Rfam assigns this 74-nucleotide sequence from Anopheles gambiae to the family "mir-3 microRNA precursor family". The family's consensus secondary structure was predicted with RNAalifold. The literature on the family includes a 2003 paper in Dev Cell by Aravin et al., "The small RNA profile during Drosophila melanogaster development".
RNA sequence: AAGAUGCGACAAACUCCGUCCAGAGGGUGUCCGAUUUCAAUGAACUCAUCACUGGGCAAAGUUUGUCGCAUAAA
Dot-bracket structure: ....((((((((((...((.(((............................))).))...))))))))))....